[Rfam]
Nucleotides: 037
Stems, first nucleotide, its partner, number of pairs: 001030007
Number, partner (000 for none) and nucleotide at each position: 001030g002029a003028c004027u005026g006025c007024c008000a009000c010000a011000g012000c013000a014000u015000c016000u017000u018000u019000c020000u021000c022000u023000c024007g025006g026005c027004a028003g029002u030001c031000g032000c033000g034000g035000c036000u037000g
S4-Bacteroidia ribosomal protein leader: a 37-nucleotide RNA. A reference for the family is Eckert and Weinberg (2020), "Discovery of 20 novel ribosomal leader candidates in bacteria and archaea", BMC Microbiol. Pairs were carried over by alignment from the consensus structure, which is taken from published work. The sequence is in the family's curated seed alignment. It is annotated as a cis-regulatory leader.